RNA sequence: GUGCGGAACUGUGUGACGUGGCUUCGUUUGAGCGUGCGAGCGCGAGAAGUUGCGACCUAAAGGAACCGCCUAUUUGCAAGGUUGGCUUUGAAUUUUCGGGCCACUUAUAUGCGCACCGCUCACUUGGGU
Number, nucleotide and partner (000 for none) at each position: 001g000002u000003g069004c068005g067006g066007a000008a000009c063010u000011g000012u000013g000014u000015g000016a000017c054018g053019u052020g051021g000022c049023u048024u047025c046026g000027u000028u000029u000030g000031a000032g043033c042034g041035u040036g000037c000038g000039a000040g035041c034042g033043c032044g000045a000046g025047a024048a023049g022050u000051u020052g019053c018054g017055a000056c000057c000058u000059a000060a000061a000062g000063g009064a000065a000066c006067c005068g004069c003070c000071u000072a000073u000074u000075u000076g000077c000078a000079a000080g000081g000082u000083u103084g102085g101086c100087u099088u098089u000090g000091a000092a000093u000094u000095u000096u000097c000098g088099g087100g086101c085102c084103a083104c000105u000106u000107a000108u000109a000110u000111g000112c000113g000114c000115a000116c000117c000118g000119c000120u000121c000122a000123c000124u000125u000126g000127g000128g000129u000
RNA: purD RNA motif
Organism: Campylobacter massiliensis